[Rfam]
RNA: tRNA
RNA sequence: GCCCAGGUAGCUCAGCUCGGUAGAGCGCCCGGCUGUGGACCGGGUGAUCCCGGGUUCAAUUCCCGGUCUGGGCC
Numbered sequence: 001g002c003c004c005a006g007g008u009a010g011c012u013c014a015g016c017u018c019g020g021u022a023g024a025g026c027g028c029c030c031g032g033c034u035g036u037g038g039a040c041c042g043g044g045u046g047a048u049c050c051c052g053g054g055u056u057c058a059a060u061u062c063c064c065g066g067u068c069u070g071g072g073c074c
Base pairs, nucleotide, nucleotide: 001073002072003071004070005069006068007067010026011025012024013023028044029043030042031041032040050066051065052064053063054062